[Rfam]
RNA: TPP riboswitch aptamer (THI element)
Organism: Galactobacter caseinivorans
RNA sequence: CAUUAACGACAGGGGAGCACCCGGGCGGUCACGCCAUGGUGCUGAGAGUGCGGCGAAUUGGCCGCAGACCCUCGAACCUGAUCCGGGUCAUUCCGGCGCUAGGGAGUCGAGUUCUCGGGUGC
Numbered sequence: 001c002a003u004u005a006a007c008g009a010c011a012g013g014g015g016a017g018c019a020c021c022c023g024g025g026c027g028g029u030c031a032c033g034c035c036a037u038g039g040u041g042c043u044g045a046g047a048g049u050g051c052g053g054c055g056a057a058u059u060g061g062c063c064g065c066a067g068a069c070c071c072u073c074g075a076a077c078c079u080g081a082u083c084c085g086g087g088u089c090a091u092u093c094c095g096g097c098g099c100u101a102g103g104g105a106g107u108c109g110a111g112u113u114c115u116c117g118g119g120u121g122c
Base pairs, nucleotide, nucleotide: 007109008108009107010106011072012071013070014069017042018041019040020039021038049066050065051064052063053062077103078102079101080100083096084095085094086093
Dot-bracket structure: ......((((((((..(((((................)))))......(((((........)))))..))))....((((..((((......))))...))))..)))).............